c-di-GMP-I-GGC riboswitch aptamer: a 75-nucleotide sequence.

RNA sequence: AUUUUUUAUGCCAAACUUGUUGCGAAGCAAGGACGGAAAGCCACGGGUCUUAUUGAGAUAGCCGGGUUGCAAACA
Dot-bracket structure: ..((......((...((((((....))))))..[))..((((.((((((.......))).])))))))..))...
Its Rfam clan is "c-di-GMP_I riboswitch clan".
The match comes from Rfam's covariance-model search (62 bits).
The family's consensus secondary structure is taken from published work.